[Rfam]
RNA sequence: UUGAUCCGAGGCCACGCGGAGUACGAUCGAGGGUACAGAUUUA
Numbered sequence: 001u002u003g004a005u006c007c008g009a010g011g012c013c014a015c016g017c018g019g020a021g022u023a024c025g026a027u028c029g030a031g032g033g034u035a036c037a038g039a040u041u042u043a
Base pairs, nucleotide, nucleotide: 003041004040005039006038011034012033013032015029016028017025018024
Shown here is a 43-nucleotide sequence from Psylliodes chrysocephalus, a member of the family "Coronavirus 3' stem-loop II-like motif (s2m)". A reference for the family is Robertson et al. (2005), "The structure of a rigorously conserved RNA element within the SARS virus genome", PLoS Biol. The family's RNA type in Rfam is cis-regulatory element. Pairs were carried over by alignment from the consensus structure, which is taken from published work. The organism belongs to Psylliodes, within Eukaryota. From the family's description: The s2m motif is found in the 3' UTRs of astrovirus, coronavirus and equine rhinovirus genomes. Its function is unknown, but various viral 3' UTR regions have been found to play roles in viral replication and packaging. The seed alignment was expanded in 2020 by Eric Nawrocki. The family is grouped with related families in Rfam's "Coronavirus 3' UTR".